This 160-nucleotide sequence from Lysinibacillus sp. BF-4 belongs to the Rfam family "glmS glucosamine-6-phosphate activated ribozyme aptamer". It scores 110 bits against the family's covariance model. The base pairs follow the family's consensus structure, which is taken from published work. Its family is annotated with regulation of gene expression and catalytic activity in the Gene Ontology. For this family Rfam cites "Evidence for preorganization of the glmS ribozyme ligand binding pocket" (Hampel and Tinsley, Biochemistry, 2006). Taxonomically the source falls in Lysinibacillus (Bacteria, Bacillota, Bacilli, Bacillaceae).

RNA sequence: AAAACAAUUAUAGCGCCAGUACUAAGGAAAUGAGUAACCUUAGUAGACGAGGAAGAGGUUUAUCGAAUCAUUCGGCGGAUGCCUCUCGGUUAAGCAAUCGUUAGCGCACUGUAAAGCGACUAGGUGACUAGGCGUACAGGUCAGUGACGCACGCAUAUAA
Numbered sequence: 001a002a003a004a005c006a007a008u009u010a011u012a013g014c015g016c017c018a019g020u021a022c023u024a025a026g027g028a029a030a031u032g033a034g035u036a037a038c039c040u041u042a043g044u045a046g047a048c049g050a051g052g053a054a055g056a057g058g059u060u061u062a063u064c065g066a067a068u069c070a071u072u073c074g075g076c077g078g079a080u081g082c083c084u085c086u087c088g089g090u091u092a093a094g095c096a097a098u099c100g101u102u103a104g105c106g107c108a109c110u111g112u113a114a115a116g117c118g119a120c121u122a123g124g125u126g127a128c129u130a131g132g133c134g135u136a137c138a139g140g141u142c143a144g145u146g147a148c149g150c151a152c153g154c155a156u157a158u159a160a
Stems, first nucleotide, its partner, number of pairs: 020045008054086005063075004087100005104150003107146004117134002120131004